[Rfam]
This 202-nucleotide RNA from Paraburkholderia solisilvae belongs to the Rfam family "Burkholderia sRNA 11".
Gene Ontology term of the family: bacterial biofilm matrix.
The literature on the family includes a 2009 paper in Proc Natl Acad Sci U S A by Yoder-Himes et al., "Mapping the Burkholderia cenocepacia niche response via high-throughput sequencing".
About the family: Identified by RNA-seq, RACE and Northern blot. Strongly expressed in biofilm. Identified in as ncRNA13. It is complimentary by 40 nucleotides with a gene encoding a regulatory protein (BCAL1948). ncS11 is strongly up-regulated in the stationary phase and biofilms, while BCAL1948 is down-regulated under these conditions.
The organism belongs to Paraburkholderia, within Bacteria.

RNA sequence: CCGUUCGCAAAGGAGUGUCCUAUGCGAAAACUCAUGGCCGCUAUCAUAGCGAGCCUGAUAGGGCUGACCGCGCUGUCCGUGUCGACCACGGCUGUCGCAUGCGGUGAUGCGAGCCAAUCUUCCGAUGGCAAGUAACCCGCUGCCCGAAGGCGCCGAGUGCGCAAUGAAAAAGGCCUUCAUCCGUUGAUGAAGGCCUUUUACU
Dot-bracket structure: ..((((((..(((.....)))..)))))....)..(((((((.....)))).))).....((((.....((((...(((((.....)))))..).)))..(((..(.((...((((.........))))...)).).))).))))....((((.....)))).....((((((((((((((....))))))))))))))...